[Rfam]
RNA: Singlet oxygen resistance RNA X
Organism: Sulfitobacter sp. SK011
RNA sequence: AGCCGCUUCGGCGCGCUGCUUCAUACCUCCCUGUUGGACUUGGCCGAGCUUUAUGCUCGGCCUUUUUU
Dot-bracket structure: (((..............))).....................((((((((.....))))))))......